Description:
The family of this 101-nucleotide RNA from Prolemur simus is "Y RNA". About the family: Y RNAs are components of the Ro ribonucleoprotein particle (Ro RNP), in association with Ro60 and La proteins. The Y RNAs and Ro60 and La proteins are well conserved, but the function of the Ro RNP is not known. By type it is a non-coding RNA gene. It scores 72 bits against the family's covariance model. For this family Rfam cites "Conserved features of Y RNAs: a comparison of experimentally derived secondary structures" (Teunissen et al., Nucleic Acids Res, 2000). The family's consensus secondary structure is taken from published work.
[Rfam]
RNA sequence: GGCUGGUCUGAAUCAGUGGUGUUUACAACUAACUGACCACAACCAGUUAUAGAUUCCUUUGUUCCUUCUCCAUUCCCACUGCUUCACUUGACUAGCCUUAA
Numbered sequence: 001g002g003c004u005g006g007u008c009u010g011a012a013u014c015a016g017u018g019g020u021g022u023u024u025a026c027a028a029c030u031a032a033c034u035g036a037c038c039a040c041a042a043c044c045a046g047u048u049a050u051a052g053a054u055u056c057c058u059u060u061g062u063u064c065c066u067u068c069u070c071c072a073u074u075c076c077c078a079c080u081g082c083u084u085c086a087c088u089u090g091a092c093u094a095g096c097c098u099u100a101a
Stems, first nucleotide, its partner, number of pairs: 001097008010089002015080005021075001027063003031059002